A member of the RNA family "Small nucleolar RNA SNORA11" from Myotis davidii, 128 nucleotides long. Lineage of the source: Eukaryota > Eumetazoa > Vertebrata > Teleostomi > Myotis. About the family: U107 (SNORA11) is a member of the H/ACA class of snoRNAs that guide the sites of modification of uridines to pseudouridines. This snoRNA was identified by RT-PCR from blood cells and its expression confirmed by Northern blot analysis. There is no predicted target for this guide snRNA. Rfam classes the family as an H/ACA-box small nucleolar RNA. Pairs were carried over by alignment from the consensus structure, which was predicted with RNAalifold. Rfam links the family to the GO terms RNA processing and nucleolus.
RNA sequence: GGGAUGUGGAGAGAGCAGAGCGCCUGAAGAAUGGCUGCUUCGUGAUUAACACAUCCAACAGCAACUUGGGCUUACUCCUCACGGGUGGCAGCAUACCCUGACCUUCCUGUGACAUUUCGCCCAACAAU
Numbered sequence: 001g002g003g004a005u006g007u008g009g010a011g012a013g014a015g016c017a018g019a020g021c022g023c024c025u026g027a028a029g030a031a032u033g034g035c036u037g038c039u040u041c042g043u044g045a046u047u048a049a050c051a052c053a054u055c056c057a058a059c060a061g062c063a064a065c066u067u068g069g070g071c072u073u074a075c076u077c078c079u080c081a082c083g084g085g086u087g088g089c090a091g092c093a094u095a096c097c098c099u100g101a102c103c104u105u106c107c108u109g110u111g112a113c114a115u116u117u118c119g120c121c122c123a124a125c126a127a128u
Stems, first nucleotide, its partner, number of pairs: 002056007015043002018040004022035003069122002071119001076114001080111002083104003088099001091098001